A member of the RNA family "SAM-III riboswitch aptamer (SMK box)" from Limosilactobacillus vaginalis, 106 nucleotides long. The source organism's lineage runs through Bacteria, Bacillota, Bacilli, Lactobacillaceae and Limosilactobacillus vaginalis.
[Rfam]
RNA sequence: UCUCGUUAUAAAGCAAAUUCCCGAUAGGAUUCACUUUACUGUGAAGAUGCCUUGUAACCACUAAAUGUUUCAAUUGUAACUUGCAUAUGGGGGAAUUAACACACAU
Dot-bracket structure: .................(((((...(((.(((((......)))))....))).....((.............................)))))))...........